[Rfam]
Shown here is an 89-nucleotide RNA from Acetoanaerobium sticklandii, a member of the family "c-di-GMP-I riboswitch aptamer". A search with the family's covariance model found it, with a score of 76 bits. The family's consensus secondary structure is taken from published work.
RNA sequence: UAAUGAAAAAGGCAAACUAUGGGAAACUGUAGGACGCAAAGCAAGGAGUCUAAAGCUUAGUUUUAAGCAAUGAUAGUCCAGCCGCCAUA
Numbered sequence: 001u002a003a004u005g006a007a008a009a010a011g012g013c014a015a016a017c018u019a020u021g022g023g024a025a026a027c028u029g030u031a032g033g034a035c036g037c038a039a040a041g042c043a044a045g046g047a048g049u050c051u052a053a054a055g056c057u058u059a060g061u062u063u064u065a066a067g068c069a070a071u072g073a074u075a076g077u078c079c080a081g082c083c084g085c086c087a088u089a
Stems, first nucleotide, its partner, number of pairs: 012037002017032006041082002045079003048074003055068004
Dot-bracket structure: ...........((...((((((....))))))...))...((..((((((....((((......))))...)))..))).)).......